This 104-nucleotide RNA sequence belongs to the Rfam family "COG3943 RNA".

RNA sequence: UACGCUCCACACAAGUUAAACUUGAGCAUGUGGCCAUCACAAGGAUGAUGUAACACCAGUAGUUAAGACUAAUAGGGAUAUUAGUAGUUAGCUACAUCAGGUGU
Numbered sequence: 001u002a003c004g005c006u007c008c009a010c011a012c013a014a015g016u017u018a019a020a021c022u023u024g025a026g027c028a029u030g031u032g033g034c035c036a037u038c039a040c041a042a043g044g045a046u047g048a049u050g051u052a053a054c055a056c057c058a059g060u061a062g063u064u065a066a067g068a069c070u071a072a073u074a075g076g077g078a079u080a081u082u083a084g085u086a087g088u089u090a091g092c093u094a095c096a097u098c099a100g101g102u103g104u
Base pairs, nucleotide, nucleotide: 012024013023014022015021016020035050036049037048038047039046053104054103055102056101057100059095060094061093062092063091064090065089066088068085069084070083071082072081073080
The family's RNA type in Rfam is small RNA.